[Rfam]
The record is a 203-nucleotide sequence, which matches "manA RNA" in Rfam. By type it is a cis-regulatory element.
RNA sequence: UGGAUUCUCGACGGAGAGUCCAUAGGGUGUGACCGAAUAACCCUUGUGGAGGCACGGGGUAAGGUAUAUUAGGACAGGGGUGGUGCCCGCUGUGCUUGCACAGAAUCCGAUACCAAGGAGUCCGAAAGUCUGGAAGUCCUCAUAUUACACCUACAAGUGUAUCCCUUCCAGUGAAGGUAUAGUAGAACCCUUUCACCCACUAA
Numbered sequence: 001u002g003g004a005u006u007c008u009c010g011a012c013g014g015a016g017a018g019u020c021c022a023u024a025g026g027g028u029g030u031g032a033c034c035g036a037a038u039a040a041c042c043c044u045u046g047u048g049g050a051g052g053c054a055c056g057g058g059g060u061a062a063g064g065u066a067u068a069u070u071a072g073g074a075c076a077g078g079g080g081u082g083g084u085g086c087c088c089g090c091u092g093u094g095c096u097u098g099c100a101c102a103g104a105a106u107c108c109g110a111u112a113c114c115a116a117g118g119a120g121u122c123c124g125a126a127a128g129u130c131u132g133g134a135a136g137u138c139c140u141c142a143u144a145u146u147a148c149a150c151c152u153a154c155a156a157g158u159g160u161a162u163c164c165c166u167u168c169c170a171g172u173g174a175a176g177g178u179a180u181a182g183u184a185g186a187a188c189c190c191u192u193u194c195a196c197c198c199a200c201u202a203a
Stems, first nucleotide, its partner, number of pairs: 001022009025198005032065002042059006069126002072123004077088003081115004090103005106119003130171007147160004151185004173193005
The sequence is in the family's curated seed alignment.